[Rfam]
RNA: Cyano-1 RNA
Organism: Pegethrix bostrychoides
RNA sequence: UGGAGUGUGAGGAGUAAAGUAAGAAAAAGCUCUUGGAGUCGAAACACGGAAAGACGCCCAAGAGCUUUUUUCU
Numbered sequence: 001u002g003g004a005g006u007g008u009g010a011g012g013a014g015u016a017a018a019g020u021a022a023g024a025a026a027a028a029g030c031u032c033u034u035g036g037a038g039u040c041g042a043a044a045c046a047c048g049g050a051a052a053g054a055c056g057c058c059c060a061a062g063a064g065c066u067u068u069u070u071u072c073u
Stems, first nucleotide, its partner, number of pairs: 025071005030064002035059002038055003